[Rfam]
RNA sequence: GGAUGUGAGGGUGAUCUGGCUGCAACAUCUGUCACUCCAUUGAUUGCCAGGGUUGAUUCAGCUGAUCUGGCUGGCUAGGCAUGGGUCCUCUUCCUCCCUCACAGCUCCACGUGCAUCCCUCCCUAAGCUGCAGGCUCGGUUGAAGAGGAUGACUUUCCCUGAUGCAGGCAGUACUGUUCAUCGGCCAUGGGUAUAUGGUUGCUGCGCUCCUCUGCUAAAACCUCCAAGCAAGCUCAGGGUCCAAUUGUAGGAGAAUGUAGGGUAGGCCAGCUUCCAAGACUGCAGACACAUCCAAGUGAGGCGUUGCACAUGGCAGUUUGCCAUUCUUU
Number, nucleotide and partner (000 for none) at each position: 001g108002g107003a106004u000005g102006u101007g100008a099009g098010g097011g096012u000013g093014a092015u000016c000017u000018g090019g089020c000021u000022g000023c000024a000025a086026c085027a000028u083029c000030u081031g080032u079033c078034a000035c074036u073037c070038c069039a068040u000041u000042g067043a066044u065045u064046g062047c061048c000049a000050g000051g000052g000053u000054u000055g000056a000057u000058u000059c000060a000061g047062c046063u000064g045065a044066u043067c042068u039069g038070g037071c000072u000073g036074g035075c000076u000077a000078g033079g032080c031081a030082u000083g028084g000085g026086u025087c000088c000089u019090c018091u000092u014093c013094c000095u000096c011097c010098c009099u008100c007101a006102c005103a000104g000105c000106u003107c002108c001109a000110c000111g000112u000113g000114c000115a000116u000117c171118c168119c167120u166121c000122c139123c138124u000125a136126a000127g135128c134129u000130g000131c000132a000133g000134g128135c127136u125137c000138g123139g122140u162141u161142g160143a000144a000145g000146a000147g158148g157149a156150u000151g000152a000153c000154u000155u000156u149157c148158c147159c000160u142161g141162a140163u000164g000165c000166a120167g119168g118169c000170a000171g117172u000173a000174c000175u000176g000177u000178u000179c000180a000181u000182c000183g000184g000185c000186c000187a000188u000189g000190g000191g000192u000193a000194u000195a000196u000197g000198g000199u000200u000201g271202c270203u269204g000205c000206g000207c265208u264209c000210c262211u261212c260213u259214g258215c257216u000217a000218a000219a000220a000221c000222c253223u252224c251225c250226a000227a000228g248229c247230a246231a245232g000233c000234u000235c000236a000237g000238g000239g000240u000241c000242c000243a000244a000245u231246u230247g229248u228249a000250g225251g224252a223253g222254a000255a000256u000257g215258u214259a213260g212261g211262g210263u000264a208265g207266g000267c000268c000269a203270g202271c201272u000273u000274c000275c000276a000277a000278g000279a000280c000281u000282g000283c000284a000285g000286a000287c000288a000289c000290a000291u000292c000293c000294a329295a328296g327297u000298g324299a000300g322301g321302c320303g317304u316305u315306g314307c313308a000309c000310a000311u000312g000313g307314c306315a305316g304317u303318u000319u000320g302321c301322c300323a000324u298325u000326c000327u296328u295329u294
Notes
A member of the RNA family "7SK RNA" from Amazona collaria, 329 nucleotides long. Rfam 15.1 lists 49,373 matches to the family in 668 species. From the family's description: 7SK was discovered as an abundant small nuclear RNA in the mid-70s but a possible function has only recently been suggested. A search with the family's covariance model found it, with a score of 280 bits. NCBI's taxonomy places the organism under Eukaryota, Euteleostomi, Dipnotetrapodomorpha, Telluraves, Amazona. It is annotated as a non-coding RNA gene. The family is grouped with related families in Rfam's "7SK clan". The base pairs follow the family's consensus structure, which is taken from published work.